Notes:
Shown here is a 381-nucleotide part of an RNA from Oceanithermus profundus, a member of the family "Bacterial large subunit ribosomal RNA". Lineage of the source: Bacteria > Thermotogati > Thermaceae > Oceanithermus > Oceanithermus profundus. On this family, see Yusupov et al., Science 2001: "Crystal structure of the ribosome at 5.5 A resolution". The base pairs follow the family's consensus structure, which is taken from published work.
RNA sequence: GAUAAAAGGGGUGAGAAUCCCCUUCGCCGUAAGCCCAAGGGUUCCUACGCAACGGUCGUCGGCGUAGGGUUAGGCGGGACCUAAGGCGUACCCGAGAGGGGAAGCCGAUGGACAGCCGGUUAAUAUUCCGGCCCCACUCCACUGGAGCGAUGGGGGGACGCUUUAGGCUAGGCGGACCGGAGCCAUGGAUGAGCCCGGCCGCGGUCCGGGGGGCGCAGGGUAGGCAAAUCCGCCCUGCACACGCUCGCCGGCCGCGGGGAAGCCCGUAGGGGUGAUAACCCGCUGACGCCAGGGAGCCGAGAAAAGCCUCUAAGCGAUGAAGGUGGAGUGCCCGUACCGUAAACCGACACAGGUGGGCGGGUGCAAGUGCACUAAGGCGCG
Numbered sequence: 001g002a003u004a005a006a007a008g009g010g011g012u013g014a015g016a017a018u019c020c021c022c023u024u025c026g027c028c029g030u031a032a033g034c035c036c037a038a039g040g041g042u043u044c045c046u047a048c049g050c051a052a053c054g055g056u057c058g059u060c061g062g063c064g065u066a067g068g069g070u071u072a073g074g075c076g077g078g079a080c081c082u083a084a085g086g087c088g089u090a091c092c093c094g095a096g097a098g099g100g101g102a103a104g105c106c107g108a109u110g111g112a113c114a115g116c117c118g119g120u121u122a123a124u125a126u127u128c129c130g131g132c133c134c135c136a137c138u139c140c141a142c143u144g145g146a147g148c149g150a151u152g153g154g155g156g157g158a159c160g161c162u163u164u165a166g167g168c169u170a171g172g173c174g175g176a177c178c179g180g181a182g183c184c185a186u187g188g189a190u191g192a193g194c195c196c197g198g199c200c201g202c203g204g205u206c207c208g209g210g211g212g213g214c215g216c217a218g219g220g221u222a223g224g225c226a227a228a229u230c231c232g233c234c235c236u237g238c239a240c241a242c243g244c245u246c247g248c249c250g251g252c253c254g255c256g257g258g259g260a261a262g263c264c265c266g267u268a269g270g271g272g273u274g275a276u277a278a279c280c281c282g283c284u285g286a287c288g289c290c291a292g293g294g295a296g297c298c299g300a301g302a303a304a305a306g307c308c309u310c311u312a313a314g315c316g317a318u319g320a321a322g323g324u325g326g327a328g329u330g331c332c333c334g335u336a337c338c339g340u341a342a343a344c345c346g347a348c349a350c351a352g353g354u355g356g357g358c359g360g361g362u363g364c365a366a367g368u369g370c371a372c373u374a375a376g377g378c379g380c381g
Stems, first nucleotide, its partner, number of pairs: 006024006025379004033358004039338002044068006053061002075334004080111002085106003089102001091100003115132005135330009147315002152310004160297004166290003171284005177198004199258002203253004210246003215238007223231002261276001263274001265272001344353002360373004